[Rfam]
RNA sequence: CCCACCGUUGAAACGAUGGGCUAUGAUCGUUUGUCCCUUCGGGACG
Numbered sequence: 001c002c003c004a005c006c007g008u009u010g011a012a013a014c015g016a017u018g019g020g021c022u023a024u025g026a027u028c029g030u031u032u033g034u035c036c037c038u039u040c041g042g043g044a045c046g
Stems, first nucleotide, its partner, number of pairs: 001020004006015003033045005
Shown here is a 46-nucleotide RNA from Candidatus Electrothrix aarhusensis, a member of the family "Acido-Lenti-1 RNA". By type it is a small RNA. The base pairs follow the family's consensus structure, which is taken from published work. The match comes from Rfam's covariance-model search (39 bits).